[Rfam]
RNA: Iron response element II
RNA sequence: ACAUUAUCAGAAGCAGGGUCUUCUAUAAUUA
Numbered sequence: 001a002c003a004u005u006a007u008c009a010g011a012a013g014c015a016g017g018g019u020c021u022u023c024u025a026u027a028a029u030u031a
Stems, first nucleotide, its partner, number of pairs: 003029005009024005014018001